[Rfam]
Nucleotides: 105
Stems, first nucleotide, its partner, number of pairs: 008101007016091005021085002023082002
Number, partner (000 for none) and nucleotide at each position: 001000a002000a003000a004000a005000c006000a007000c008101g009100g010099g011098c012097a013096g014095u015000c016091c017090u018089g019088u020087a021085c022084g023082g024081u025000c026000a027000g028000c029000u030000c031000c032000c033000u034000c035000g036000g037000a038000a039000u040000c041000c042000c043000c044000c045000a046000g047000g048000a049000u050000g051000g052000g053000a054000a055000c056000g057000u058000a059000g060000c061000a062000a063000g064000g065000g066000u067000a068000c069000u070000u071000g072000g073000u074000c075000g076000u077000a078000g079000c080000g081024a082023c083000g084022c085021g086000a087020u088019g089018c090017a091016g092000a093000c094000c095014g096013c097012u098011g099010c100009c101008c102000a103000c104000c105000c